The record is a 55-nucleotide RNA sequence from Moorena producens, which matches "Nitrogen stress-induced RNA 1" in Rfam. The pairing is the family consensus, mapped onto this sequence. The family's RNA type in Rfam is small RNA. A search with the family's covariance model found it, with a score of 40 bits. Taxonomically the source falls in Moorena producens (Bacteria, Cyanobacteriota, Coleofasciculales, Moorena).

Nucleotides: 055
Stems, first nucleotide, its partner, number of pairs: 003012002024047009
Number, partner (000 for none) and nucleotide at each position: 001000u002000a003012g004011u005000a006000g007000a008000u009000g010000c011004a012003c013000c014000c015000u016000g017000a018000u019000c020000a021000c022000c023000g024047c025046c026045c027044c028043c029042a030041g031040c032039u033000u034000u035000u036000a037000c038000a039032g040031g041030u042029u043028g044027g045026g046025g047024g048000u049000u050000u051000c052000c053000u054000g055000a